RNA: Vault RNA
Organism: Neogale vison
RNA sequence: GGGUCGGCUUUAGCUCAAGCGGUUACUUCGCGUUCAGUCUUCGGACUUCUAAUCCCUUCACGGGGGUUCGAGACCCGCGGGUGCUUUCUGACCCUUUU
Numbered sequence: 001g002g003g004u005c006g007g008c009u010u011u012a013g014c015u016c017a018a019g020c021g022g023u024u025a026c027u028u029c030g031c032g033u034u035c036a037g038u039c040u041u042c043g044g045a046c047u048u049c050u051a052a053u054c055c056c057u058u059c060a061c062g063g064g065g066g067u068u069c070g071a072g073a074c075c076c077g078c079g080g081g082u083g084c085u086u087u088c089u090g091a092c093c094c095u096u097u098u
Stems, first nucleotide, its partner, number of pairs: 002093006013082004019078004027072004